[Rfam]
RNA sequence: UGAUUACUAUAACUUCGCAGUAAAUAUUGAUAUCAAGGAUUUUCAAGGAUUUUCAAUUCUUGAUAUCAAUAUUUACUGCGAAGUUAUAGUAAUCA
Numbered sequence: 001u002g003a004u005u006a007c008u009a010u011a012a013c014u015u016c017g018c019a020g021u022a023a024a025u026a027u028u029g030a031u032a033u034c035a036a037g038g039a040u041u042u043u044c045a046a047g048g049a050u051u052u053u054c055a056a057u058u059c060u061u062g063a064u065a066u067c068a069a070u071a072u073u074u075a076c077u078g079c080g081a082a083g084u085u086a087u088a089g090u091a092a093u094c095a
Base pairs, nucleotide, nucleotide: 001095002094003093005091006090007089010088011085012084013083014082015081016080017079018078021075023073024072025071026070027069028068029067030066031065032064033063034062035061036060037059038058039057040056041055
This 95-nucleotide RNA from Neogale vison belongs to the Rfam family "mir-16 microRNA precursor family". The literature on the family includes a 2020 paper in Mol Cell by Jin et al., "Structural Basis for pri-miRNA Recognition by Drosha". The match comes from Rfam's covariance-model search (44 bits). Lineage of the source: Eukaryota > Metazoa > Euteleostomi > Mammalia > Neogale.